Shown here is an 82-nucleotide RNA sequence from Paraburkholderia monticola, a member of the family "tRNA". The match comes from Rfam's covariance-model search (58 bits). Pairs were carried over by alignment from the consensus structure, which is taken from published work.
RNA sequence: GCCGGGGUGAUGAAAUUGGUAAACAUAGCGGACUUAAAAUCCGCCGCUUCACGGCUUGCCGGUUCGAGUCCGGUCCCCGGCA
Numbered sequence: 001g002c003c004g005g006g007g008u009g010a011u012g013a014a015a016u017u018g019g020u021a022a023a024c025a026u027a028g029c030g031g032a033c034u035u036a037a038a039a040u041c042c043g044c045c046g047c048u049u050c051a052c053g054g055c056u057u058g059c060c061g062g063u064u065c066g067a068g069u070c071c072g073g074u075c076c077c078c079g080g081c082a
Base pairs, nucleotide, nucleotide: 001081002080003079004078005077006076007075010026011025012024028044029043030042031041032040058074059073060072061071062070